Shown here is an 81-nucleotide sequence from Enhydrobacter aerosaccus, a member of the family "chrB-a RNA". The match comes from Rfam's covariance-model search (76 bits). It is annotated as a cis-regulatory element.
RNA sequence: UCGAUGGGGAUCGCGAUCUCCCCAUGAGGCGGCAGCCGAAGCAUCGCGUCCUGUUUUCUUCCUCAAGGACGCUGCCCCAUG
Numbered sequence: 001u002c003g004a005u006g007g008g009g010a011u012c013g014c015g016a017u018c019u020c021c022c023c024a025u026g027a028g029g030c031g032g033c034a035g036c037c038g039a040a041g042c043a044u045c046g047c048g049u050c051c052u053g054u055u056u057u058c059u060u061c062c063u064c065a066a067g068g069a070c071g072c073u074g075c076c077c078c079a080u081g
Stems, first nucleotide, its partner, number of pairs: 005024006046072006
The family has 163 seed sequences and 347 matches in Rfam 15.1.